[Rfam]
RNA sequence: CGGCUGUCCGUUGUGCUUGAUCUAACCAUGUGCUUCCUCCUGGACUCGCUCAACAUGGUUCUGUCAAGCACCAGGGACCGCUG
Numbered sequence: 001c002g003g004c005u006g007u008c009c010g011u012u013g014u015g016c017u018u019g020a021u022c023u024a025a026c027c028a029u030g031u032g033c034u035u036c037c038u039c040c041u042g043g044a045c046u047c048g049c050u051c052a053a054c055a056u057g058g059u060u061c062u063g064u065c066a067a068g069c070a071c072c073a074g075g076g077a078c079c080g081c082u083g
Stems, first nucleotide, its partner, number of pairs: 001083004006078004013071007024060008